[Rfam]
RNA sequence: CAAUGGCACCCUUUUCCCUACAUAGUGCUCUACUUUUGGGCCCAGUCAAAAGUAGAGCACUAUGUAGGGAAUAGGGUGCCAUUG
Numbered sequence: 001c002a003a004u005g006g007c008a009c010c011c012u013u014u015u016c017c018c019u020a021c022a023u024a025g026u027g028c029u030c031u032a033c034u035u036u037u038g039g040g041c042c043c044a045g046u047c048a049a050a051a052g053u054a055g056a057g058c059a060c061u062a063u064g065u066a067g068g069g070a071a072u073a074g075g076g077u078g079c080c081a082u083u084g
Stems, first nucleotide, its partner, number of pairs: 001084003006079006014071007023062009

mir-130 microRNA precursor family: an 84-nucleotide RNA from Oncorhynchus mykiss.
Lineage of the source: Eukaryota > Gnathostomata > Euteleosteomorpha > Protacanthopterygii > Oncorhynchus.
Pairs were carried over by alignment from the consensus structure, which was predicted with PFOLD.
On this family, see Lagos-Quintana et al., Curr Biol 2002: "Identification of tissue-specific microRNAs from mouse".